[Rfam]
Annotation
Shown here is a 126-nucleotide sequence from Corymbia citriodora, a member of the family "Small nucleolar RNA SNORD14". The match comes from Rfam's covariance-model search (80 bits).

RNA sequence: GGUCGGUGAUGAUGCAUACGAAGGCUUGUUUCUCGGAAAACAUUCGCAGUGGCCGCCUAAGAGCUUUCGCCUUCGCCAGGCUUGAGAGCUAGUGCUGCUAUAAUCCUUCCUUGGAUGUCUGAGACC
Numbered sequence: 001g002g003u004c005g006g007u008g009a010u011g012a013u014g015c016a017u018a019c020g021a022a023g024g025c026u027u028g029u030u031u032c033u034c035g036g037a038a039a040a041c042a043u044u045c046g047c048a049g050u051g052g053c054c055g056c057c058u059a060a061g062a063g064c065u066u067u068c069g070c071c072u073u074c075g076c077c078a079g080g081c082u083u084g085a086g087a088g089c090u091a092g093u094g095c096u097g098c099u100a101u102a103a104u105c106c107u108u109c110c111u112u113g114g115a116u117g118u119c120u121g122a123g124a125c126c
Base pairs, nucleotide, nucleotide: 001126002125003124004123063089064088065087066086067085068084